[Rfam]
RNA sequence: GGGCCCAUAGCUCAAUGGUUAGAGCAGAGGACUCAUAAUCCUUUGGUUGCAGGUUCGAGUCCUGCUGGGCCCA
Numbered sequence: 001g002g003g004c005c006c007a008u009a010g011c012u013c014a015a016u017g018g019u020u021a022g023a024g025c026a027g028a029g030g031a032c033u034c035a036u037a038a039u040c041c042u043u044u045g046g047u048u049g050c051a052g053g054u055u056c057g058a059g060u061c062c063u064g065c066u067g068g069g070c071c072c073a
Stems, first nucleotide, its partner, number of pairs: 001072007010025004027043005049065005
Shown here is a 73-nucleotide sequence from Aromatoleum aromaticum, a member of the family "tRNA". Gene Ontology term of the family: triplet codon-amino acid adaptor activity. The source organism's lineage runs through Bacteria, Pseudomonadati, Betaproteobacteria, Aromatoleum and Aromatoleum aromaticum. By type it is a transfer RNA. Clan: tRNA clan.